[Rfam]
RNA sequence: GAGAACAAGAAGAAGCUCCCGCUUCUCGCCUAAGUUAAAUUGACCUCUGGGCUGAUCGAUAUUUUCUGUUGAUUGAAGGCGGGCAGUGUUGCCCGCCUUUUUCUUGUCCU
Numbered sequence: 001g002a003g004a005a006c007a008a009g010a011a012g013a014a015g016c017u018c019c020c021g022c023u024u025c026u027c028g029c030c031u032a033a034g035u036u037a038a039a040u041u042g043a044c045c046u047c048u049g050g051g052c053u054g055a056u057c058g059a060u061a062u063u064u065u066c067u068g069u070u071g072a073u074u075g076a077a078g079g080c081g082g083g084c085a086g087u088g089u090u091g092c093c094c095g096c097c098u099u100u101u102u103c104u105u106g107u108c109c110u
Stems, first nucleotide, its partner, number of pairs: 011026006028052003033046002035043002078097008
The family of this 110-nucleotide sequence from Lactobacillus acetotolerans is "Ribosomal protein L20 leader". On this family, see Zengel and Lindahl, Prog Nucleic Acid Res Mol Biol 1994: "Diverse mechanisms for regulating ribosomal protein synthesis in Escherichia coli". Lineage of the source: Bacteria > Bacillota > Bacilli > Lactobacillaceae > Lactobacillus. Rfam's curators write: This family is a putative r-protein leader autoregulatory structure found in B. subtilis and other low-GC Gram-positive bacteria. It is located in the 5' untranslated regions of mRNAs encoding initiation factor 3 followed by ribosomal proteins L35 and L20 (infC-rpmI-rplT).